[Rfam]
RNA sequence: CUCCAUGACUUUGGACUGCGGUGGCAGUAUCAUUUCCUCACCAUGGGAGAACAUAUUCUUGUUUAUUGGCAAAGCCGUCACCACUUAACAGGUAUCAGACCGACUGGCAGCAUUC
Numbered sequence: 001c002u003c004c005a006u007g008a009c010u011u012u013g014g015a016c017u018g019c020g021g022u023g024g025c026a027g028u029a030u031c032a033u034u035u036c037c038u039c040a041c042c043a044u045g046g047g048a049g050a051a052c053a054u055a056u057u058c059u060u061g062u063u064u065a066u067u068g069g070c071a072a073a074g075c076c077g078u079c080a081c082c083a084c085u086u087a088a089c090a091g092g093u094a095u096c097a098g099a100c101c102g103a104c105u106g107g108c109a110g111c112a113u114u115c
Stems, first nucleotide, its partner, number of pairs: 002047006013031002016027004060112004069108002072105001075098001077096001080093003